The record is a 38-nucleotide sequence from Thermanaerovibrio acidaminovorans, which matches "Selenocysteine insertion sequence 4" in Rfam. NCBI's taxonomy places the organism under Bacteria, Thermotogati, Synergistales, Synergistaceae, Thermanaerovibrio acidaminovorans. Gene Ontology term of the family: selenocysteine incorporation. By type it is a cis-regulatory element. Rfam 15.1 lists 436 matches to the family in 281 species.

[Rfam]
RNA sequence: GGUACCUGCACUCGUUGCGGCGCAACGAUGGUGAAGGA
Numbered sequence: 001g002g003u004a005c006c007u008g009c010a011c012u013c014g015u016u017g018c019g020g021c022g023c024a025a026c027g028a029u030g031g032u033g034a035a036g037g038a
Stems, first nucleotide, its partner, number of pairs: 005031002013027006